[Rfam]
RNA sequence: GCACGUCCCCCAUCUUUUCCAAUGGGGCAGUUAACAGUAAGGCGGUUUUGCGGUUGGUGAUUAUUUGCAUAGUAUAGACCACGCAAUUUUCUCAGGCUCCGUGCAGGCUGUUUUCCCUGCUAUCGUGCUUUUUUACCUUUGCAAACUUGGUUGCGGUAUUUUUCGCACGUCCUUUUUCCACACAACUCUCGCACUCCCAAAAUAAUGUGCUUUGCGUGUGCGGGCGGGUACUGAUGUACUCCGACCGUUCCGACUUGCGGCGUUGGUUCGCCGUCCUGCUCGGUGUGGUUAUUUAACACCCUAUUUAAUCGCUCCAAAGCGAACAGGCAAUUUUUUGAUUUUCCCAGCCUCAAAAAAAUGUUUCCAAUAAAAAAGGCUGUUUGUUU
Numbered sequence: 001g002c003a004c005g006u007c008c009c010c011c012a013u014c015u016u017u018u019c020c021a022a023u024g025g026g027g028c029a030g031u032u033a034a035c036a037g038u039a040a041g042g043c044g045g046u047u048u049u050g051c052g053g054u055u056g057g058u059g060a061u062u063a064u065u066u067g068c069a070u071a072g073u074a075u076a077g078a079c080c081a082c083g084c085a086a087u088u089u090u091c092u093c094a095g096g097c098u099c100c101g102u103g104c105a106g107g108c109u110g111u112u113u114u115c116c117c118u119g120c121u122a123u124c125g126u127g128c129u130u131u132u133u134u135a136c137c138u139u140u141g142c143a144a145a146c147u148u149g150g151u152u153g154c155g156g157u158a159u160u161u162u163u164c165g166c167a168c169g170u171c172c173u174u175u176u177u178c179c180a181c182a183c184a185a186c187u188c189u190c191g192c193a194c195u196c197c198c199a200a201a202a203u204a205a206u207g208u209g210c211u212u213u214g215c216g217u218g219u220g221c222g223g224g225c226g227g228g229u230a231c232u233g234a235u236g237u238a239c240u241c242c243g244a245c246c247g248u249u250c251c252g253a254c255u256u257g258c259g260g261c262g263u264u265g266g267u268u269c270g271c272c273g274u275c276c277u278g279c280u281c282g283g284u285g286u287g288g289u290u291a292u293u294u295a296a297c298a299c300c301c302u303a304u305u306u307a308a309u310c311g312c313u314c315c316a317a318a319g320c321g322a323a324c325a326g327g328c329a330a331u332u333u334u335u336u337g338a339u340u341u342u343c344c345c346a347g348c349c350u351c352a353a354a355a356a357a358a359u360g361u362u363u364c365c366a367a368u369a370a371a372a373a374a375g376g377c378u379g380u381u382u383g384u385u386u
Base pairs, nucleotide, nucleotide: 008027009026010025011024012023013022053097054096055094056093057092103120104119105118106117124169125168126167127166141154142153143152144151179220180219181218182217183216191210192209193208194207197266198265199264200263221247222246223245225243226242227241228239229238230237231236257274258273259272260271261270262269275327276326277325278324282300283299284298285297286296309322310321311320312319313318345379346378347377348376349375359366360365
Shown here is a 386-nucleotide RNA, a member of the family "Bacteroidales-2 RNA". Pairs were carried over by alignment from the consensus structure, which is taken from published work. The sequence is in the family's curated seed alignment.